[Rfam]
RNA sequence: UGAAUAAGCCAUUACAAUAGGCAUAUCUGAACCAUGUCAGGACCGGAAGGUAGCAGCAUUAAGGAUCAAGGUCUAUGUGUAAUGGUCUUUUUAUUAGA
Numbered sequence: 001u002g003a004a005u006a007a008g009c010c011a012u013u014a015c016a017a018u019a020g021g022c023a024u025a026u027c028u029g030a031a032c033c034a035u036g037u038c039a040g041g042a043c044c045g046g047a048a049g050g051u052a053g054c055a056g057c058a059u060u061a062a063g064g065a066u067c068a069a070g071g072u073c074u075a076u077g078u079g080u081a082a083u084g085g086u087c088u089u090u091u092u093a094u095u096a097g098a
Base pairs, nucleotide, nucleotide: 004092006090007089008088009085010084011083012082013081014080015077017076018075019074020073021072022071025066026065027064028063034059035058036057037056042051043050044049
Rfam assigns this 98-nucleotide sequence from Eggerthia catenaformis to the family "Bacterial small signal recognition particle RNA". It is annotated as a non-coding RNA gene. A search with the family's covariance model found it, with a score of 67 bits. The signal recognition particle (SRP) is a universally conserved ribonucleoprotein involved in the co-translational targeting of proteins to membranes. The organism belongs to Eggerthia catenaformis, within Bacteria. On this family, see Rosenblad et al., Nucleic Acids Res 2003: "SRPDB: Signal Recognition Particle Database".